[Rfam]
RNA: Small nucleolar RNA U83B
Organism: Phyllostomus discolor
RNA sequence: GCUGGCGAGAGGUGACGAGGGUCUGGAGUGCACGCCGGGCAUGGCGCUGGAGUCGCACUGCAGAAACGUUCCCGCUGCUUUCCCUGUGAGAACAGC
Numbered sequence: 001g002c003u004g005g006c007g008a009g010a011g012g013u014g015a016c017g018a019g020g021g022u023c024u025g026g027a028g029u030g031c032a033c034g035c036c037g038g039g040c041a042u043g044g045c046g047c048u049g050g051a052g053u054c055g056c057a058c059u060g061c062a063g064a065a066a067c068g069u070u071c072c073c074g075c076u077g078c079u080u081u082c083c084c085u086g087u088g089a090g091a092a093c094a095g096c
Base pairs, nucleotide, nucleotide: 001096002095003094004093